[Rfam]
RNA: mir-160 microRNA precursor family
RNA sequence: GCAUGCCUGGCUCCCUGUAUGCCAUUUGCAAAGUCUAUCAAGAAUCUGGUGGCCUUCGCGAAUGGCAUGCGAGGAGCCACGCAUGA
Numbered sequence: 001g002c003a004u005g006c007c008u009g010g011c012u013c014c015c016u017g018u019a020u021g022c023c024a025u026u027u028g029c030a031a032a033g034u035c036u037a038u039c040a041a042g043a044a045u046c047u048g049g050u051g052g053c054c055u056u057c058g059c060g061a062a063u064g065g066c067a068u069g070c071g072a073g074g075a076g077c078c079a080c081g082c083a084u085g086a
Base pairs, nucleotide, nucleotide: 002085003084004083005082006081008079009078010077011076012075013074014073016071017070018069019068020067021066022065023064024063027060028059029058